[Rfam]
RNA sequence: CGGCAUGCUAUCCUAAGGGUCGGUGCUUGUUUGUAGCUCCUGGCUCUCCAAGUGCAUGCAAGAAAACAGGGUGGUCUUUGACUGCUGUGGCCACUCUGUGCCAUCAGCAGCCACUCAGCUGUCCUACAGAC
Number, nucleotide and partner (000 for none) at each position: 001c000002g000003g000004c000005a000006u000007g000008c000009u000010a000011u000012c000013c000014u042015a041016a000017g000018g000019g038020u000021c036022g000023g034024u033025g032026c000027u000028u000029g000030u000031u000032u025033g024034u023035a000036g021037c000038u019039c000040c000041u015042g014043g000044c000045u000046c000047u000048c000049c000050a000051a000052g000053u000054g000055c000056a000057u000058g000059c000060a000061a000062g000063a000064a000065a000066a000067c000068a000069g124070g123071g122072u121073g120074g119075u000076c000077u000078u000079u000080g000081a000082c000083u000084g111085c110086u000087g104088u103089g102090g101091c000092c000093a000094c000095u000096c000097u000098g000099u000100g000101c090102c089103a088104u087105c000106a000107g000108c000109a000110g085111c084112c000113a000114c000115u000116c000117a000118g000119c074120u073121g072122u071123c070124c069125u000126a000127c000128a000129g000130a000131c000
RNA: Small nucleolar RNA SNORA44
Organism: Oreochromis niloticus